[Rfam]
RNA sequence: UUCUCCGUUGAUUGUCCGAACGCAAUUCUUGUUGAAUUUCCUAGUCAAGAACUGUGUACGGACAUCAGUGGUUGA
Numbered sequence: 001u002u003c004u005c006c007g008u009u010g011a012u013u014g015u016c017c018g019a020a021c022g023c024a025a026u027u028c029u030u031g032u033u034g035a036a037u038u039u040c041c042u043a044g045u046c047a048a049g050a051a052c053u054g055u056g057u058a059c060g061g062a063c064a065u066c067a068g069u070g071g072u073u074g075a
Stems, first nucleotide, its partner, number of pairs: 002074001005071003009067004014063005021056004026051006
Source information: mir-219 microRNA precursor family: a 75-nucleotide sequence from Strongylocentrotus purpuratus. It is one of the family's seed sequences. The family's consensus secondary structure was predicted with RNAalifold. On this family, see Lai et al., Genome Biol 2003: "Computational identification of Drosophila microRNA genes". Rfam 15.1 lists 1,318 matches to the family in 774 species.